ssnA RNA: a 48-nucleotide sequence. The family's RNA type in Rfam is cis-regulatory element.

[Rfam]
RNA sequence: UGACUGAUAGCUGUAACGAAGGGCUGCGCGCACGGGCUGAAACUAUCA
Number, nucleotide and partner (000 for none) at each position: 001u000002g000003a000004c000005u000006g000007a000008u039009a038010g037011c036012u035013g000014u000015a000016a000017c000018g000019a000020a000021g033022g000023g031024c030025u000026g000027c000028g000029c000030g024031c023032a000033c021034g000035g012036g011037c010038u009039g008040a000041a000042a000043c000044u000045a000046u000047c000048a000